[Rfam]
RNA sequence: AAACAGAAAAGGCAAACCAAUCGAAAGACUGGGACGCAAAGCUACAGGUCUAAGGUUAUGAACUAUGAUGGCUGUGCUACCUAA
Numbered sequence: 001a002a003a004c005a006g007a008a009a010a011g012g013c014a015a016a017c018c019a020a021u022c023g024a025a026a027g028a029c030u031g032g033g034a035c036g037c038a039a040a041g042c043u044a045c046a047g048g049u050c051u052a053a054g055g056u057u058a059u060g061a062a063c064u065a066u067g068a069u070g071g072c073u074g075u076g077c078u079a080c081c082u083a084a
Stems, first nucleotide, its partner, number of pairs: 012037002017032003021028002040078003045074003048069003055063003
c-di-GMP-I riboswitch aptamer: an 84-nucleotide sequence from Oceanobacillus piezotolerans. The organism belongs to Oceanobacillus, within Bacteria. About the family: GEMM was predicted in a large-scale screen for bacterial structured RNA regulatory elements. The match comes from Rfam's covariance-model search (77 bits).